[Rfam]
RNA sequence: UUUAGAACUCAAGAUAUAGGUUGAACACUGAACAGUGUCUGGGUUGUAGGACAAAUUCGUACUUCUCUUUUAAUGUUAAGAUUUGGACUUCCAAAUGACAUAAUUAAGUCUUGGACGCUCAUGAAUGUUUUAGGCCUAUAUCUUAUCUUUCUAGC
Numbered sequence: 001u002u003u004a005g006a007a008c009u010c011a012a013g014a015u016a017u018a019g020g021u022u023g024a025a026c027a028c029u030g031a032a033c034a035g036u037g038u039c040u041g042g043g044u045u046g047u048a049g050g051a052c053a054a055a056u057u058c059g060u061a062c063u064u065c066u067c068u069u070u071u072a073a074u075g076u077u078a079a080g081a082u083u084u085g086g087a088c089u090u091c092c093a094a095a096u097g098a099c100a101u102a103a104u105u106a107a108g109u110c111u112u113g114g115a116c117g118c119u120c121a122u123g124a125a126u127g128u129u130u131u132a133g134g135c136c137u138a139u140a141u142c143u144u145a146u147c148u149u150u151c152u153a154g155c
Stems, first nucleotide, its partner, number of pairs: 002154006009145001011144010021133005027128002035122003041118001045115001048112005054105004063097001074086001
Dot-bracket structure: .((((((.(.(((((((((((((((.((......(((...(...(..(((((.((((.....(..........(...........)..........)....))))..)))))..)..).)))....))))))).)))))))))))...)))))).
RNA: MIR2912 microRNA precursor family